Annotation: The family of this 167-nucleotide sequence from Dissulfuribacter thermophilus is "Group II catalytic intron D1-D4-3". The organism belongs to Dissulfuribacter, within Bacteria. A search with the family's covariance model found it, with a score of 113 bits. About the family: Group II introns are found in rRNA, tRNA and mRNA of organelles in fungi, plants and protists, and also in mRNA in bacteria. For this family Rfam cites "The ins and outs of group II introns" (Bonen and Vogel, Trends Genet, 2001).
RNA sequence: GCCACUGUGAGGUGGGGUCUGGAGGAAGCCUGAGUGCAAAACUGCGAGCCGACGAACAGGAACUGCAUAAAAGGCCGAACACCCUGGGUGAACUAGCCAGGCAUAGCAAAACCCUGUGGCUCAAGGGACACGGUAGAUGCAGCGGAAGGGCUGUGAAAGUCCAUGCU
Numbered sequence: 001g002c003c004a005c006u007g008u009g010a011g012g013u014g015g016g017g018u019c020u021g022g023a024g025g026a027a028g029c030c031u032g033a034g035u036g037c038a039a040a041a042c043u044g045c046g047a048g049c050c051g052a053c054g055a056a057c058a059g060g061a062a063c064u065g066c067a068u069a070a071a072a073g074g075c076c077g078a079a080c081a082c083c084c085u086g087g088g089u090g091a092a093c094u095a096g097c098c099a100g101g102c103a104u105a106g107c108a109a110a111a112c113c114c115u116g117u118g119g120c121u122c123a124a125g126g127g128a129c130a131c132g133g134u135a136g137a138u139g140c141a142g143c144g145g146a147a148g149g150g151c152u153g154u155g156a157a158a159g160u161c162c163a164u165g166c167u
Stems, first nucleotide, its partner, number of pairs: 002015005028167001030165001036160002041154002044151002049145003063142006074134003082127004086114004093106003